[Rfam]
RNA sequence: CAAAACCUUCGGGGCGUGGUGAAAUUCCACACCGGCGGUGAUUCGUACGCAUGUACGUGUACAUGGGUGCGAUCAGUCCGUGACCCGUUGUGAAGCUAGCGGUACCUGACAACAGCUUCGCUACGGUUGACCUGGUGUAACUCCGGGACCGACAGUAUAGUCUGGAUGGGAGAAGGAAAAU
Number, nucleotide and partner (000 for none) at each position: 001c000002a000003a000004a000005a000006c176007c175008u174009u173010c172011g000012g000013g000014g000015c000016g000017u029018g028019g027020u000021g000022a000023a000024a000025u000026u000027c019028c018029a017030c000031a161032c160033c151034g150035g081036c080037g079038g078039u000040g000041a000042u000043u000044c000045g000046u000047a000048c000049g000050c000051a000052u000053g000054u000055a000056c000057g000058u000059g000060u000061a000062c000063a000064u000065g000066g000067g000068u000069g000070c000071g000072a000073u000074c000075a000076g000077u000078c038079c037080g036081u035082g000083a000084c000085c126086c125087g124088u123089u000090g000091u000092g000093a000094a000095g000096c000097u000098a000099g000100c000101g000102g000103u000104a000105c000106c000107u000108g000109a000110c000111a000112a000113c000114a000115g000116c000117u000118u000119c000120g000121c000122u000123a088124c087125g086126g085127u000128u000129g000130a000131c147132c146133u145134g144135g143136u000137g000138u000139a000140a000141c000142u000143c135144c134145g133146g132147g131148a000149c000150c034151g033152a000153c164154a163155g162156u000157a000158u000159a000160g032161u031162c155163u154164g153165g000166a000167u000168g000169g000170g000171a000172g010173a009174a008175g007176g006177a000178a000179a000180a000181u000

About this RNA
The record is a 181-nucleotide sequence from Paenibacillus pectinilyticus, which matches "FMN riboswitch aptamer (RFN element)" in Rfam. The literature on the family includes a 1999 paper in Trends Genet by Gelfand et al., "A conserved RNA structure element involved in the regulation of bacterial riboflavin synthesis genes".